Background:
Shown here is a 76-nucleotide RNA from Orthoflavivirus ntayaense, a member of the family "General Flavivirus exoribonuclease-resistant RNA element". The family's RNA type in Rfam is cis-regulatory element. Lineage of the source: Viruses > Kitrinoviricota > Amarillovirales > Flaviviridae > Orthoflavivirus ntayaense. A reference for the family is Pijlman et al. (2008), "A highly structured, nuclease-resistant, noncoding RNA produced by flaviviruses is required for pathogenicity", Cell Host Microbe. The sequence is in the family's curated seed alignment.

[Rfam]
RNA sequence: CAAAGUCAGGCCGUAGGUUUUACGCCACUAGCAUGCAGUGCUGCCUGAGACAAGACAUGCCCCAGGAGGACUGGGA
Numbered sequence: 001c002a003a004a005g006u007c008a009g010g011c012c013g014u015a016g017g018u019u020u021u022a023c024g025c026c027a028c029u030a031g032c033a034u035g036c037a038g039u040g041c042u043g044c045c046u047g048a049g050a051c052a053a054g055a056c057a058u059g060c061c062c063c064a065g066g067a068g069g070a071c072u073g074g075g076a
Stems, first nucleotide, its partner, number of pairs: 006049001008046004012024004028038002061075005
Record summary:
The exoribonuclease-resistant RNA elements (xrRNA) are described throughout all groups of flaviviruses. Usually, each virus harbors two xrRNAs, xrRNA1 and xrRNA2, in the beginning of the 3' UTR. The formation of these stem-loops, especially xrRNA1, is vital to ensure resistance against XRN1 activity. The Y-shaped stem-loop is also termed SL II and SL IV, respectively. In order to function as xrRNA, the sequence downstream is needed as well, since the upper loop region forms a pseudoknot (PK) with the single-stranded region directly downstream to its respective hairpin.